[Rfam]
RNA: SAM riboswitch aptamer (S box leader)
RNA sequence: UUCUUAUAAAGAGAGAUGGAAGGACUGGCCUAAUGAAAUCUCGGCAGCGGAACAUCAGUUACCGUGCUAAAUCCAGCAAGCAAUAGCUUGGCAGAUAAGAA
Numbered sequence: 001u002u003c004u005u006a007u008a009a010a011g012a013g014a015g016a017u018g019g020a021a022g023g024a025c026u027g028g029c030c031u032a033a034u035g036a037a038a039u040c041u042c043g044g045c046a047g048c049g050g051a052a053c054a055u056c057a058g059u060u061a062c063c064g065u066g067c068u069a070a071a072u073c074c075a076g077c078a079a080g081c082a083a084u085a086g087c088u089u090g091g092c093a094g095a096u097a098a099g100a101a
Stems, first nucleotide, its partner, number of pairs: 001101007013042005021031003025076004043068004048064002050060002072093001077090005